[Rfam]
RNA sequence: ACUUCCAGAGCCGGAACGAAAAGUGCAACGAAGUUGAGUGUUAACUCACGGAAUUUUGGGGUGCUUUUGGCUUGUGGUCGUGAUGUUGUGUUUGCAAUUGACCUGACGGUUUUCGGGUCCGGUGGCUUACGCCGCCAUUUUUCCUGUAGAUUUACCCUGUCUGUCCAUAUUGAUUUUUACAGCACCGCAAACUGCGGUGCUUUUUUUU
Numbered sequence: 001a002c003u004u005c006c007a008g009a010g011c012c013g014g015a016a017c018g019a020a021a022a023g024u025g026c027a028a029c030g031a032a033g034u035u036g037a038g039u040g041u042u043a044a045c046u047c048a049c050g051g052a053a054u055u056u057u058g059g060g061g062u063g064c065u066u067u068u069g070g071c072u073u074g075u076g077g078u079c080g081u082g083a084u085g086u087u088g089u090g091u092u093u094g095c096a097a098u099u100g101a102c103c104u105g106a107c108g109g110u111u112u113u114c115g116g117g118u119c120c121g122g123u124g125g126c127u128u129a130c131g132c133c134g135c136c137a138u139u140u141u142u143c144c145u146g147u148a149g150a151u152u153u154a155c156c157c158u159g160u161c162u163g164u165c166c167a168u169a170u171u172g173a174u175u176u177u178u179a180c181a182g183c184a185c186c187g188c189a190a191a192c193u194g195c196g197g198u199g200c201u202u203u204u205u206u207u208u
Base pairs, nucleotide, nucleotide: 009072010071011070012069015068016067021066022065023064024063025062026061029059030057031056032055033054034053100119101118102117103116104115105114106113121136122135123134124133125132126131150178181201182200183199184198185197186196187195188194
Shown here is a 208-nucleotide sequence from Erwinia tasmaniensis, a member of the family "GcvB RNA". The match comes from Rfam's covariance-model search (122 bits). Rfam describes the family as follows. The gcvB gene encodes a small untranslated RNA involved in expression of the dipeptide and oligopeptide transport systems in Escherichia coli. For this family Rfam cites "A small RNA regulates multiple ABC transporter mRNAs by targeting C/A-rich elements inside and upstream of ribosome-binding sites" (Sharma et al., Genes Dev, 2007). It is annotated as a non-coding RNA gene.